[Rfam]
RNA sequence: UUUGGCAAAUGAUGAAGAAAUUCUUAUGCUUACACACCGAAUUUACCGUGUAGAGUACAACUCCGCUUAUUAUCUGAUGCCGUA
Numbered sequence: 001u002u003u004g005g006c007a008a009a010u011g012a013u014g015a016a017g018a019a020a021u022u023c024u025u026a027u028g029c030u031u032a033c034a035c036a037c038c039g040a041a042u043u044u045a046c047c048g049u050g051u052a053g054a055g056u057a058c059a060a061c062u063c064c065g066c067u068u069a070u071u072a073u074c075u076g077a078u079g080c081c082g083u084a
Base pairs, nucleotide, nucleotide: 003082004081005080006079007078
Description:
Small nucleolar RNA R16: an 84-nucleotide RNA sequence from Cicer arietinum. Rfam classes the family as a C/D-box small nucleolar RNA. On this family, see Galardi et al., Mol Cell Biol 2002: "Purified box C/D snoRNPs are able to reproduce site-specific 2'-O-methylation of target RNA in vitro". Taxonomically the source falls in Cicer (Eukaryota, Viridiplantae, Pentapetalae, rosids).